[Rfam]
RNA sequence: GCAAUCUCAAGCUGGCGCGUGAGAACGUGGUGGUGUUCCGCUCCCUGCUGGGCAUCUCCUGGAUGUGGUUCUUCGGCGUGGUGUUUCUGGCCAACUUCCCCACCUUCGCCAAAGAGGUCCUG
Numbered sequence: 001g002c003a004a005u006c007u008c009a010a011g012c013u014g015g016c017g018c019g020u021g022a023g024a025a026c027g028u029g030g031u032g033g034u035g036u037u038c039c040g041c042u043c044c045c046u047g048c049u050g051g052g053c054a055u056c057u058c059c060u061g062g063a064u065g066u067g068g069u070u071c072u073u074c075g076g077c078g079u080g081g082u083g084u085u086u087c088u089g090g091c092c093a094a095c096u097u098c099c100c101c102a103c104c105u106u107c108g109c110c111a112a113a114g115a116g117g118u119c120c121u122g
Stems, first nucleotide, its partner, number of pairs: 010049003014044002017041003021037002024034001026032001051121002054118002057115002060112001062110001063105001065103001067099002072094001075091001077089002080087002
Burkholderia RNA 11: a 122-nucleotide RNA from Paucibacter sp. KBW04. Rfam links the family to the GO term protein binding. The family's RNA type in Rfam is small RNA. About the family: Co-purified with Hfq, expression confirmed by Northern blot. Predicted target marZ. Overlaps coding sequence. A reference for the family is Ramos et al. (2013), "Experimental identification of small non-coding regulatory RNAs in the opportunistic human pathogen Burkholderia cenocepacia J2315", Genomics. The family's consensus secondary structure was predicted with RNAfold.